[Rfam]
RNA sequence: UAAAAUCAUUCAUGAAUUGCUCGUAUAAUGUUGGAAAUAUGGUCCAAUCGUUUCUACCAAACUACCGUAAAUAGUUUGACUACGAGAAGGGGAUAUUAACAC
Numbered sequence: 001u002a003a004a005a006u007c008a009u010u011c012a013u014g015a016a017u018u019g020c021u022c023g024u025a026u027a028a029u030g031u032u033g034g035a036a037a038u039a040u041g042g043u044c045c046a047a048u049c050g051u052u053u054c055u056a057c058c059a060a061a062c063u064a065c066c067g068u069a070a071a072u073a074g075u076u077u078g079a080c081u082a083c084g085a086g087a088a089g090g091g092g093a094u095a096u097u098a099a100c101a102c
Stems, first nucleotide, its partner, number of pairs: 018088001020086006030048006058078007
Dot-bracket structure: .................(.((((((....((((((.......)))))).........(((((((.......)))))))..)))))).)..............
RNA: Purine riboswitch aptamer